RNA sequence: GAAACCUUUAAAGGAAGUCCCGUGAGGCUUAAAAGGUUCGUAAUGGAUAAACGUGUGAUAGCCACACGUCUACCUCUUUGCGUACUUUUUAAGCGCAAAGAGGUUUUUUUA
Numbered sequence: 001g002a003a004a005c006c007u008u009u010a011a012a013g014g015a016a017g018u019c020c021c022g023u024g025a026g027g028c029u030u031a032a033a034a035g036g037u038u039c040g041u042a043a044u045g046g047a048u049a050a051a052c053g054u055g056u057g058a059u060a061g062c063c064a065c066a067c068g069u070c071u072a073c074c075u076c077u078u079u080g081c082g083u084a085c086u087u088u089u090u091a092a093g094c095g096c097a098a099a100g101a102g103g104u105u106u107u108u109u110u111a
Stems, first nucleotide, its partner, number of pairs: 003038007015030005051069007072104012
Shown here is a 111-nucleotide RNA sequence from Halobacillus karajensis, a member of the family "PyrR binding site". For this family Rfam cites "Molecular recognition of pyr mRNA by the Bacillus subtilis attenuation regulatory protein PyrR" (Bonner et al., Nucleic Acids Res, 2001). It scores 61 bits against the family's covariance model. The source organism's lineage runs through Bacteria, Bacillati, Caryophanales, Bacillaceae and Halobacillus.